[Rfam]
RNA sequence: CGGGGCUGCUGAAUUAGAGAUCGGCACCCCUUUAUUUCUUUUAAUCUGGAGUACAACAUGUCUCUAAGCGUUGAAGCUAAAGCAAAAAUCGUUUCCGAGUUUGGUCGUGGUGCU
Numbered sequence: 001c002g003g004g005g006c007u008g009c010u011g012a013a014u015u016a017g018a019g020a021u022c023g024g025c026a027c028c029c030c031u032u033u034a035u036u037u038c039u040u041u042u043a044a045u046c047u048g049g050a051g052u053a054c055a056a057c058a059u060g061u062c063u064c065u066a067a068g069c070g071u072u073g074a075a076g077c078u079a080a081a082g083c084a085a086a087a088a089u090c091g092u093u094u095c096c097g098a099g100u101u102u103g104g105u106c107g108u109g110g111u112g113c114u
Base pairs, nucleotide, nucleotide: 007026008025009024010023011022012021045068047066048065049064050063051062

The record is a 114-nucleotide RNA sequence from Pluralibacter gergoviae, which matches "Ribosomal S15 leader" in Rfam. From the family's description: The E. coli Ribosomal S15 gene 5' UTR can form two alternative structures. A search with the family's covariance model found it, with a score of 106 bits. Gene Ontology term of the family: regulation of translation, ncRNA-mediated. Taxonomically the source falls in Pluralibacter (Bacteria, Gammaproteobacteria, Enterobacterales, Enterobacteriaceae).